[Rfam]
A member of the RNA family "PreQ1 (pre queuosine) riboswitch aptamer" from [Anoxybacillus] calidus, 45 nucleotides long. This family is a bacterial riboswitch that binds to the metabolite preQ1, an intermediate in the biosynthesis of the modified nucleoside queuosine from GTP. One example of this riboswitch is located in the leader of the Bacillus subtilis ykvJKLM (queCDEF) operon which encodes four genes necessary for queuosine production. PreQ1 binding to the riboswitch aptamer is thought to induce premature transcription termination within the leader to down-regulate expression of these genes. A search with the family's covariance model found it, with a score of 48 bits.
RNA sequence: CCCCGAGAGGUUCUAGAACAACCCUCUAUAAAAAACUAGGGAAUG
Numbered sequence: 001c002c003c004c005g006a007g008a009g010g011u012u013c014u015a016g017a018a019c020a021a022c023c024c025u026c027u028a029u030a031a032a033a034a035a036c037u038a039g040g041g042a043a044u045g
Stems, first nucleotide, its partner, number of pairs: 006027005016037001
On this family, see Reader et al., J Biol Chem 2004: "Identification of four genes necessary for biosynthesis of the modified nucleoside queuosine". Gene Ontology term of the family: queuosine biosynthetic process. Taxonomically the source falls in Paranoxybacillus (Bacteria, Bacillati, Bacillota, Anoxybacillaceae).